[Rfam]
Nucleotides: 106
Base pairs, nucleotide, nucleotide: 023084024083025082026081033076034075035074036073037072042067043066044065049061050060051059052058
Number, partner (000 for none) and nucleotide at each position: 001000a002000c003000u004000c005000a006000a007000c008000g009000c010000c011000a012000a013000u014000u015000c016000u017000u018000u019000a020000a021000a022000u023084g024083g025082g026081u027000g028000a029000a030000u031000c032000g033076c034075c035074g036073c037072u038000a039000c040000u041000a042067a043066a044065g045000c046000a047000a048000g049061c050060u051059g052058c053000c054000u055000c056000g057000a058052g059051c060050a061049g062000a063000u064000c065044c066043u067042u068000g069000a070000a071000c072037a073036g074035c075034g076033g077000g078000u079000u080000a081026g082025c083024c084023u085000u086000a087000a088000a089000c090000u091000u092000g093000u094000c095000u096000u097000u098000a099000a100000a101000g102000a103000g104000u105000u106000u